[Rfam]
RNA sequence: ACUUGUGCUGAGGGCCUCACACUAACCCUAGAGACUUGUUCAUUACUCUUUCGUCUAAGGGAAAGUCCCUGGACCUAGGUCAGAGAGUGCCAUGUGGUUGUACACAUUGACAAUCCCAUUUUCCAUAUGAAGUCUCCAAGAAGCUAAUAGGCAUAGCAGGAGCAGUAUGGUGAAGGGAUGUCACCCUCAGCUCUUCUAGUUACAUAGGCAGUGCACCUUCCUGCAUGCACGAACCACACAGGGCUUAUUCUCAGUGUGGC
Numbered sequence: 001a002c003u004u005g006u007g008c009u010g011a012g013g014g015c016c017u018c019a020c021a022c023u024a025a026c027c028c029u030a031g032a033g034a035c036u037u038g039u040u041c042a043u044u045a046c047u048c049u050u051u052c053g054u055c056u057a058a059g060g061g062a063a064a065g066u067c068c069c070u071g072g073a074c075c076u077a078g079g080u081c082a083g084a085g086a087g088u089g090c091c092a093u094g095u096g097g098u099u100g101u102a103c104a105c106a107u108u109g110a111c112a113a114u115c116c117c118a119u120u121u122u123c124c125a126u127a128u129g130a131a132g133u134c135u136c137c138a139a140g141a142a143g144c145u146a147a148u149a150g151g152c153a154u155a156g157c158a159g160g161a162g163c164a165g166u167a168u169g170g171u172g173a174a175g176g177g178a179u180g181u182c183a184c185c186c187u188c189a190g191c192u193c194u195u196c197u198a199g200u201u202a203c204a205u206a207g208g209c210a211g212u213g214c215a216c217c218u219u220c221c222u223g224c225a226u227g228c229a230c231g232a233a234c235c236a237c238a239c240a241g242g243g244c245u246u247a248u249u250c251u252c253a254g255u256g257u258g259g260c
Stems, first nucleotide, its partner, number of pairs: 003259009014209004030044002033041002063246003067243004079091001081089002092107005109182003115177003119174003123170004134165002136162001143157004211230005
RNA: RNase MRP